[Rfam]
RNA: mir-1324 microRNA precursor family
Organism: Homo sapiens
RNA sequence: CCUGAACAGGGGCAGGCAGACUCAUCCUGCCCUCAGUGGGAACCCCCUUCCUCUGGGUACUAGACAGAAUUCUGUGCACUUUCCUGGAGG
Numbered sequence: 001c002c003u004g005a006a007c008a009g010g011g012g013c014a015g016g017c018a019g020a021c022u023c024a025u026c027c028u029g030c031c032c033u034c035a036g037u038g039g040g041a042a043c044c045c046c047c048u049u050c051c052u053c054u055g056g057g058u059a060c061u062a063g064a065c066a067g068a069a070u071u072c073u074g075u076g077c078a079c080u081u082u083c084c085u086g087g088a089g090g
Stems, first nucleotide, its partner, number of pairs: 001090003008081003012077003016072001018070001021063002025059001029058004038052005